Overview:
Shown here is a 125-nucleotide sequence from Nyssa sinensis, a member of the family "Small nucleolar RNA SNORD14". On this family, see Samarsky et al., Nucleic Acids Res 1996: "An essential domain in Saccharomyces cerevisiae U14 snoRNA is absent in vertebrates, but conserved in other yeasts". Taxonomically the source falls in Nyssa (Eukaryota, Tracheophyta, eudicotyledons, Nyssaceae). Rfam describes the family as follows. U14 small nucleolar RNA (U14 snoRNA) is required for early cleavages of eukaryotic precursor rRNAs. In yeasts, this molecule possess a stem-loop region (known as the Y-domain) which is essential for function. A similar structure, but with a different consensus sequence, is found in plants, but is absent in vertebrates. A search with the family's covariance model found it, with a score of 81 bits. Its family is annotated with nucleolus and RNA processing in the Gene Ontology.
RNA sequence: UGUCGAUGAUGACAAAAUCCAAAGGCUUGUUUCUCAAGACAUUCGCAGUGGCCGCCUAAGAGCUAUCGCCUUCGCCGGGCUUGAGAGCUAAUGCUGCUUUUAUCCUUCCUUGGAUGUCUGAGACA
Dot-bracket structure: ((((.........................................................(((.((...............)).))).................................))))